This 100-nucleotide RNA sequence from Ligilactobacillus salivarius belongs to the Rfam family "23S methyl RNA motif". The family's consensus secondary structure is taken from published work. Its family is annotated with regulation of gene expression in the Gene Ontology.

RNA sequence: CGGUUGUUAGUAAUUAACGGAACUGUCGUUAGUUGCUAUAUAAUUGUACUUCAUUAACGUAGCUGUUCGCCGUGCCCACACCGAAUGGCUACGCUUUUUU
Numbered sequence: 001c002g003g004u005u006g007u008u009a010g011u012a013a014u015u016a017a018c019g020g021a022a023c024u025g026u027c028g029u030u031a032g033u034u035g036c037u038a039u040a041u042a043a044u045u046g047u048a049c050u051u052c053a054u055u056a057a058c059g060u061a062g063c064u065g066u067u068c069g070c071c072g073u074g075c076c077c078a079c080a081c082c083g084a085a086u087g088g089c090u091a092c093g094c095u096u097u098u099u100u
Base pairs, nucleotide, nucleotide: 002045003044004043005042006041007040008038009037010036011035012034013033014032015031016030017029018028019027056095058093059092060091061090062089063088064087065086066085067084068083069082072081073080074079